[Rfam]
The record is a 46-nucleotide RNA sequence from Draconibacterium sediminis, which matches "Acido-Lenti-1 RNA" in Rfam.
The source organism's lineage runs through Bacteria, Pseudomonadati, Bacteroidota, Marinilabiliales and Draconibacterium.
It scores 42 bits against the family's covariance model.
It is annotated as a small RNA.

RNA sequence: CCCGGCGCUUACGCACCGGGCUGUUAGAUUUCGCCCCGUUGGGGCU
Numbered sequence: 001c002c003c004g005g006c007g008c009u010u011a012c013g014c015a016c017c018g019g020g021c022u023g024u025u026a027g028a029u030u031u032c033g034c035c036c037c038g039u040u041g042g043g044g045c046u
Stems, first nucleotide, its partner, number of pairs: 001020005007014002033045005